[Rfam]
The record is a 230-nucleotide sequence from Silurus meridionalis, which matches "Small nucleolar RNA SNORA53" in Rfam. Rfam classes the family as an H/ACA-box small nucleolar RNA. The base pairs follow the family's consensus structure, which was predicted with RNAalifold. A search with the family's covariance model found it, with a score of 114 bits. The snoRNA ACA53 belongs to the H/ACA family of pseudouridylation guide snoRNAs. The source organism's lineage runs through Eukaryota, Eumetazoa, Teleostomi, Characiphysae and Silurus.
RNA sequence: AACACGUUCCUUAGAUCCACCUCUAGGGAAUCCUUUGGCUCUGGUGCUGCUGCUCUCUUGAGUGUUGCAGCUCCAGGUUGGAGGCUCCCAGCAGCUUUUCUGGCUGUACAGUUGGAGGUGCUUGAGUCAUUGGCGUGUGAGAGCAGUCUACCUGCUUCUUCAGCCAAUUUGCUGCCCUGGCUCCCACCUUUGGGACUUCACCAGGGCAGACAAGCUGGAGAGCGGACAAC
Numbered sequence: 001a002a003c004a005c006g007u008u009c010c011u012u013a014g015a016u017c018c019a020c021c022u023c024u025a026g027g028g029a030a031u032c033c034u035u036u037g038g039c040u041c042u043g044g045u046g047c048u049g050c051u052g053c054u055c056u057c058u059u060g061a062g063u064g065u066u067g068c069a070g071c072u073c074c075a076g077g078u079u080g081g082a083g084g085c086u087c088c089c090a091g092c093a094g095c096u097u098u099u100c101u102g103g104c105u106g107u108a109c110a111g112u113u114g115g116a117g118g119u120g121c122u123u124g125a126g127u128c129a130u131u132g133g134c135g136u137g138u139g140a141g142a143g144c145a146g147u148c149u150a151c152c153u154g155c156u157u158c159u160u161c162a163g164c165c166a167a168u169u170u171g172c173u174g175c176c177c178u179g180g181c182u183c184c185c186a187c188c189u190u191u192g193g194g195a196c197u198u199c200a201c202c203a204g205g206g207c208a209g210a211c212a213a214g215c216u217g218g219a220g221a222g223c224g225g226a227c228a229a230c
Base pairs, nucleotide, nucleotide: 002138003137004136005135006134007133008132010126011125012124013123014122018120019119020118021117022116023115024114025113027089028088030086034082035081036080037079040077041076042075043074044073047070048069049068050067053064055060091107092106093105094104095103096102152225153224154223155222156221159219161217162216163215164214172209173208174207175206176205177204178203179202180201183194184193185192